[Rfam]
RNA sequence: GAUGAAGCGAGGAGGUGAAUAUGAUGAGGUCUACCGCAAAAUCGUUCUACCAACGCUACUUUUCUGCGACGCAGGAAGCGUCCUGGCUGGCCCGCCUGAUGGCAGGACGACAGCAGGAAAUUCUGGGGGAACUGAUGCAGUGGGGAGUGACGUCAACGACCUCUGAUCAUUGACUUGCAGACAUCAUGUGUGACUGAGUAUUGGUGUUAUACUCGUCGUUUUUCAAACUGCAGGUGCGCUGUCGAUGUUUCCUGGGCCGUAUGUUCUGGCUGCGUGAUUCGCCUCUACGGGACUCACCUUUUCAGGGCCAGCGCGAGCGCGGCGCAAAAUGGUUAACCGUUUUGUCCUGCAGCAUGAAAUCCAUAGAGUAUAGAAUCACCCGCCAGCAGAAUGCCUCUGCUGGCUUUUUUC
Numbered sequence: 001g002a003u004g005a006a007g008c009g010a011g012g013a014g015g016u017g018a019a020u021a022u023g024a025u026g027a028g029g030u031c032u033a034c035c036g037c038a039a040a041a042u043c044g045u046u047c048u049a050c051c052a053a054c055g056c057u058a059c060u061u062u063u064c065u066g067c068g069a070c071g072c073a074g075g076a077a078g079c080g081u082c083c084u085g086g087c088u089g090g091c092c093c094g095c096c097u098g099a100u101g102g103c104a105g106g107a108c109g110a111c112a113g114c115a116g117g118a119a120a121u122u123c124u125g126g127g128g129g130a131a132c133u134g135a136u137g138c139a140g141u142g143g144g145g146a147g148u149g150a151c152g153u154c155a156a157c158g159a160c161c162u163c164u165g166a167u168c169a170u171u172g173a174c175u176u177g178c179a180g181a182c183a184u185c186a187u188g189u190g191u192g193a194c195u196g197a198g199u200a201u202u203g204g205u206g207u208u209a210u211a212c213u214c215g216u217c218g219u220u221u222u223u224c225a226a227a228c229u230g231c232a233g234g235u236g237c238g239c240u241g242u243c244g245a246u247g248u249u250u251c252c253u254g255g256g257c258c259g260u261a262u263g264u265u266c267u268g269g270c271u272g273c274g275u276g277a278u279u280c281g282c283c284u285c286u287a288c289g290g291g292a293c294u295c296a297c298c299u300u301u302u303c304a305g306g307g308c309c310a311g312c313g314c315g316a317g318c319g320c321g322g323c324g325c326a327a328a329a330u331g332g333u334u335a336a337c338c339g340u341u342u343u344g345u346c347c348u349g350c351a352g353c354a355u356g357a358a359a360u361c362c363a364u365a366g367a368g369u370a371u372a373g374a375a376u377c378a379c380c381c382g383c384c385a386g387c388a389g390a391a392u393g394c395c396u397c398u399g400c401u402g403g404c405u406u407u408u409u410u411c
Base pairs, nucleotide, nucleotide: 001185002184003183004182007178008177009176010175011174034143035142036141040136042134044132045131046130047129048128050126051125052124053122067089068088070086071084074081095117096116097115098114101111103109162173163172382404383403384402385401386400387399388398389397
Rfam assigns this 411-nucleotide sequence from Klebsiella pneumoniae to the family "SgrS RNA". In sugar transport-related sRNA (SgrS) is induced under conditions of glucose phosphate stress in E.coli. NCBI's taxonomy places the organism under Bacteria, Gammaproteobacteria, Enterobacterales, Klebsiella pneumoniae, Klebsiella pneumoniae subsp. pneumoniae.